[Rfam]
RNA sequence: AGAUGAAGAUGAUGAAAGUAAUAUAUGUGAGUGGUGAUCAACUUCAUAUGAUCAAGACAUUUUUACUUUAUCGCUACAUUCUUUCUAAUUCAUAU
Numbered sequence: 001a002g003a004u005g006a007a008g009a010u011g012a013u014g015a016a017a018g019u020a021a022u023a024u025a026u027g028u029g030a031g032u033g034g035u036g037a038u039c040a041a042c043u044u045c046a047u048a049u050g051a052u053c054a055a056g057a058c059a060u061u062u063u064u065a066c067u068u069u070a071u072c073g074c075u076a077c078a079u080u081c082u083u084u085c086u087a088a089u090u091c092a093u094a095u
Stems, first nucleotide, its partner, number of pairs: 004092004
The record is a 95-nucleotide RNA from Salix dunnii, which matches "Small nucleolar RNA R32/R81/Z41" in Rfam. Its family is annotated with nucleolus and RNA processing in the Gene Ontology. The organism belongs to Salix, within Eukaryota. By type it is a C/D-box small nucleolar RNA.